Shown here is a 69-nucleotide sequence from Bifidobacterium gallicum, a member of the family "Transposase-2 RNA". By type it is a small RNA. The sequence is in the family's curated seed alignment.

RNA sequence: GAAACGCGAACCAAACAGCCAUGAGCGUGGCGCAAGGCUUGGAGCUGGAAGCCGCAAGGCUCCCAUGUC
Numbered sequence: 001g002a003a004a005c006g007c008g009a010a011c012c013a014a015a016c017a018g019c020c021a022u023g024a025g026c027g028u029g030g031c032g033c034a035a036g037g038c039u040u041g042g043a044g045c046u047g048g049a050a051g052c053c054g055c056a057a058g059g060c061u062c063c064c065a066u067g068u069c
Stems, first nucleotide, its partner, number of pairs: 011042004018031005046065003050061004